Rfam assigns this 365-nucleotide RNA sequence from Clostridium tetani to the family "Bacterial RNase P class A". Rfam classes the family as a ribozyme. Pairs were carried over by alignment from the consensus structure, which is taken from published work. Rfam's curators put it in the seed alignment.

[Rfam]
RNA sequence: CGAGUAAGCCAGACAGUCGCUGCUGUAUAAUUUACAGGAGAGGAAAGUCGGAGCUCCAUAGAGCAGGGUGCUGGGUAACCCCCAGUGGAGGCGACUCUAAGGAUAGUGCAACAGAGAGAUACCGCCAAAGGUCUUGUAGACUUUUGGUAAGGGUGGAAAGGUGAGGUAAGAGCUCACCAGCACACUGGUGACAGUGUGGCUAUGUAAACCCCACUUGGAGCAAGAUCAAAUAGAGAAGCAGGGAGAUUAACUUCCAGGGGCUGCUCGUCCCGCUUCCGGGUAGUAUCGCUAAAGCCUAUUGGCGACAAUAGGCUUAGAUAGAUGACUGUUUAAUACAGGACUCCGCUUAUAGACUUAGUCGCUUA
Numbered sequence: 001c002g003a004g005u006a007a008g009c010c011a012g013a014c015a016g017u018c019g020c021u022g023c024u025g026u027a028u029a030a031u032u033u034a035c036a037g038g039a040g041a042g043g044a045a046a047g048u049c050g051g052a053g054c055u056c057c058a059u060a061g062a063g064c065a066g067g068g069u070g071c072u073g074g075g076u077a078a079c080c081c082c083c084a085g086u087g088g089a090g091g092c093g094a095c096u097c098u099a100a101g102g103a104u105a106g107u108g109c110a111a112c113a114g115a116g117a118g119a120u121a122c123c124g125c126c127a128a129a130g131g132u133c134u135u136g137u138a139g140a141c142u143u144u145u146g147g148u149a150a151g152g153g154u155g156g157a158a159a160g161g162u163g164a165g166g167u168a169a170g171a172g173c174u175c176a177c178c179a180g181c182a183c184a185c186u187g188g189u190g191a192c193a194g195u196g197u198g199g200c201u202a203u204g205u206a207a208a209c210c211c212c213a214c215u216u217g218g219a220g221c222a223a224g225a226u227c228a229a230a231u232a233g234a235g236a237a238g239c240a241g242g243g244a245g246a247u248u249a250a251c252u253u254c255c256a257g258g259g260g261c262u263g264c265u266c267g268u269c270c271c272g273c274u275u276c277c278g279g280g281u282a283g284u285a286u287c288g289c290u291a292a293a294g295c296c297u298a299u300u301g302g303c304g305a306c307a308a309u310a311g312g313c314u315u316a317g318a319u320a321g322a323u324g325a326c327u328g329u330u331u332a333a334u335a336c337a338g339g340a341c342u343c344c345g346c347u348u349a350u351a352g353a354c355u356u357a358g359u360c361g362c363u364u365a
Base pairs, nucleotide, nucleotide: 001361002360003359005357006356007355008354010352011350012330013329014328015327016326017325018324020040021039023037024036025035026034027033045348046347047346049345050344051343052342053341054220055219056218057217061266062265063264064263066216067215068214069213070212071085072084073083074082075081086100087098088097089096090095101211102210106209107208108205109204110203122152123151124148125147126146127145128144129143130142131141132140160178161177162176163175164174165173180200181198182197183196184195185194186193187192224287225286226285227283235276236275237274238273239272257271258270259269260268261267294313295312296311297310298309299308300307301306